[Rfam]
RNA: Plant small nucleolar RNA U3
Organism: Kingdonia uniflora
RNA sequence: ACGACCUUACUUGAACAGGAUCUGUUCUAUAGGCUCGUACCUCUGUAUCCUUGAUAUCUAAGGAGACAGGAAACCUAAGUCUGGUGGAUGAGUUCUGACCGUGUGAUCAGAGCGUGAUUAACGGCUAGGUCUCCUCUCCGGGAGAUUCUCAGCUGUAGAGGAUCGUUCUCAACCAGCCUCGGCUGAUUGAGGUGAUCGCUCGGUUGUCUGACAGACU
Numbered sequence: 001a002c003g004a005c006c007u008u009a010c011u012u013g014a015a016c017a018g019g020a021u022c023u024g025u026u027c028u029a030u031a032g033g034c035u036c037g038u039a040c041c042u043c044u045g046u047a048u049c050c051u052u053g054a055u056a057u058c059u060a061a062g063g064a065g066a067c068a069g070g071a072a073a074c075c076u077a078a079g080u081c082u083g084g085u086g087g088a089u090g091a092g093u094u095c096u097g098a099c100c101g102u103g104u105g106a107u108c109a110g111a112g113c114g115u116g117a118u119u120a121a122c123g124g125c126u127a128g129g130u131c132u133c134c135u136c137u138c139c140g141g142g143a144g145a146u147u148c149u150c151a152g153c154u155g156u157a158g159a160g161g162a163u164c165g166u167u168c169u170c171a172a173c174c175a176g177c178c179u180c181g182g183c184u185g186a187u188u189g190a191g192g193u194g195a196u197c198g199c200u201c202g203g204u205u206g207u208c209u210g211a212c213a214g215a216c217u
Base pairs, nucleotide, nucleotide: 001038002037003035005033006032007031013027014026015025016024017023018022043069044068045067046066048064049063050062051061052060053059079216080215081214082213083212098204099203100202101201103199104198105197106196107195108194109193111167112166113165114164121156122155123154124153125152126151128147129146130145131144132143133142134141135140169190170189171188172187174185175184176183177182